RNA sequence: AGUUGAAAAAGGCAAAGCGGCGCGAAAGCCCGUGACGCAAAGCCUCCGGUCUACGAUAGCGAUGGCAUCCUCUGGUGAUGUAUCUGUCUUGAUAGCGGGGCUACCGAA
Number, nucleotide and partner (000 for none) at each position: 001a000002g000003u000004u000005g000006a000007a000008a000009a000010a000011g000012g038013c037014a000015a000016a000017g033018c032019g031020g030021c000022g029023c028024g000025a000026a000027a000028g023029c022030c020031c019032g018033u017034g000035a000036c000037g013038c012039a000040a000041a102042g101043c100044c099045u000046c098047c097048g096049g093050u092051c091052u000053a000054c000055g000056a087057u086058a085059g084060c000061g000062a000063u000064g000065g000066c000067a000068u000069c000070c000071u000072c000073u000074g000075g000076u000077g000078a000079u000080g000081u000082a000083u000084c059085u058086g057087u056088c000089u000090u000091g051092a050093u049094a000095g000096c048097g047098g046099g044100g043101c042102u041103a000104c000105c000106g000107a000108a000